[Rfam]
RNA sequence: GUGCAUCCAACAGGAAUUGAACCUACGAGUUUUCCAAUUAUGUGUUGGGCGCUUUACCCAUUCAGCCAUGGAUGC
Number, nucleotide and partner (000 for none) at each position: 001g000002u000003g075004c074005a073006u072007c071008c070009a000010a000011c000012a024013g023014g022015a000016a000017u000018u000019g000020a000021a000022c014023c013024u012025a000026c000027g000028a000029g000030u000031u000032u000033u000034c000035c000036a000037a000038u000039u000040a069041u068042g067043u000044g066045u065046u064047g063048g062049g061050c000051g059052c000053u000054u000055u000056a000057c000058c000059c051060a000061u049062u048063c047064a046065g045066c044067c042068a041069u040070g008071g007072a006073u005074g004075c003
Rfam assigns this 75-nucleotide sequence from Papaver somniferum to the family "Plastid-ycf2 5UTR RNA". The base pairs follow the family's consensus structure, which was predicted with LocARNA. Plastid ycf2 is a non-coding RNA (ncRNA) recognised in plastids. It was found in the prime untranslated region (5UTR) of ycf2 genes, it presents a tRNA-like motif which suggests it can be involved in mRNA maturation, particularly involved in defining the precise 5' end of the transcript. The literature on the family includes a 2023 paper in Plant Commun by Richter et al., "Retrograde signaling in plants: A critical review focusing on the GUN pathway and beyond". It scores 88 bits against the family's covariance model.